This 87-nucleotide sequence from Paenalicyclobacillus ferrooxydans belongs to the Rfam family "c-di-GMP-I riboswitch aptamer". Lineage of the source: Bacteria > Bacillati > Bacilli > Caryophanales > Paenalicyclobacillus. A search with the family's covariance model found it, with a score of 50 bits.

[Rfam]
RNA sequence: GUCUGAAAAUGGCAAACCAGCUGAAACGUUGGGACAAAGCUUCGGGUCUAAGGGCGCAGAGGUACGUAUGAUUGCCGGGUUGCGGAC
Numbered sequence: 001g002u003c004u005g006a007a008a009a010u011g012g013c014a015a016a017c018c019a020g021c022u023g024a025a026a027c028g029u030u031g032g033g034a035c036a037a038a039g040c041u042u043c044g045g046g047u048c049u050a051a052g053g054g055c056g057c058a059g060a061g062g063u064a065c066g067u068a069u070g071a072u073u074g075c076c077g078g079g080u081u082g083c084g085g086a087c
Stems, first nucleotide, its partner, number of pairs: 017032005038081004043077003046072003054065001056063001
Dot-bracket structure: ................(((((......))))).....((((.((((((.....(.(......).)....)))..)))))))......